[Rfam]
RNA sequence: CACGGUCCUCGGUAGUGGCUUCCGGAUGGUGAAUCAUCCGUGAGCCUCGAUCGAAGACCGAG
Numbered sequence: 001c002a003c004g005g006u007c008c009u010c011g012g013u014a015g016u017g018g019c020u021u022c023c024g025g026a027u028g029g030u031g032a033a034u035c036a037u038c039c040g041u042g043a044g045c046c047u048c049g050a051u052c053g054a055a056g057a058c059c060g061a062g
Stems, first nucleotide, its partner, number of pairs: 001062001003060005009054005017046005023040007

The record is a 62-nucleotide RNA sequence, which matches "Actino-pnp RNA" in Rfam.
The family's consensus secondary structure is taken from published work.